[Rfam]
RNA sequence: UGGAAGAGUCUGUUAAGCUCAGGAGGGAUAGCGCCAUGGAUGGUCUUUACAACAAUAUCUAUACAGGGUUUCCUGGAUCUUCUUUAGCGCUAUCCAUCCUGAGUUUCACUGGUUCUUCUU
Numbered sequence: 001u002g003g004a005a006g007a008g009u010c011u012g013u014u015a016a017g018c019u020c021a022g023g024a025g026g027g028a029u030a031g032c033g034c035c036a037u038g039g040a041u042g043g044u045c046u047u048u049a050c051a052a053c054a055a056u057a058u059c060u061a062u063a064c065a066g067g068g069u070u071u072c073c074u075g076g077a078u079c080u081u082c083u084u085u086a087g088c089g090c091u092a093u094c095c096a097u098c099c100u101g102a103g104u105u106u107c108a109c110u111g112g113u114u115c116u117u118c119u120u
Stems, first nucleotide, its partner, number of pairs: 010111001016105009026095009